[Rfam]
RNA sequence: GACUUAUCAAGAGUGGUGGAGGGAAUGGCCCUAUGAAACCCAGCAACCCAUCUUUUCGAUGAAGGUGCUAAGUCCAGCAGAAUCACGAGAUUCUGAAAGAUAAGGU
Numbered sequence: 001g002a003c004u005u006a007u008c009a010a011g012a013g014u015g016g017u018g019g020a021g022g023g024a025a026u027g028g029c030c031c032u033a034u035g036a037a038a039c040c041c042a043g044c045a046a047c048c049c050a051u052c053u054u055u056u057c058g059a060u061g062a063a064g065g066u067g068c069u070a071a072g073u074c075c076a077g078c079a080g081a082a083u084c085a086c087g088a089g090a091u092u093c094u095g096a097a098a099g100a101u102a103a104g105g106u
Stems, first nucleotide, its partner, number of pairs: 001106001003104006013041001015040003021031003026076003042069004047065002049061004073098001078095006
RNA: SAM riboswitch aptamer (S box leader)